RNA: T-box leader
RNA sequence: UAAAAAUCAAUGAAAAGGAAUAGUAAUUGUCUGUAAUCUUUUAGAGAGCUUGUGGCUGGUGGAAACAAGUAGAGGAAGCAAUGAACUCGCCUUGGAGAUGUAAGGGUGAAUCAAGUAGUCUUUACCGUAUCACUGCGUUAAAGUGUUGAGGGCAUACAAUGAUUGUAUGAACUAAGGUGGUAACGCGAUAAAGUCGUCCUUAGA
Numbered sequence: 001u002a003a004a005a006a007u008c009a010a011u012g013a014a015a016a017g018g019a020a021u022a023g024u025a026a027u028u029g030u031c032u033g034u035a036a037u038c039u040u041u042u043a044g045a046g047a048g049c050u051u052g053u054g055g056c057u058g059g060u061g062g063a064a065a066c067a068a069g070u071a072g073a074g075g076a077a078g079c080a081a082u083g084a085a086c087u088c089g090c091c092u093u094g095g096a097g098a099u100g101u102a103a104g105g106g107u108g109a110a111u112c113a114a115g116u117a118g119u120c121u122u123u124a125c126c127g128u129a130u131c132a133c134u135g136c137g138u139u140a141a142a143g144u145g146u147u148g149a150g151g152g153c154a155u156a157c158a159a160u161g162a163u164u165g166u167a168u169g170a171a172c173u174a175a176g177g178u179g180g181u182a183a184c185g186c187g188a189u190a191a192a193g194u195c196g197u198c199c200u201u202a203g204a
Stems, first nucleotide, its partner, number of pairs: 007098002015093004026082005037073003048070006101124007126137003153169007174201004185197005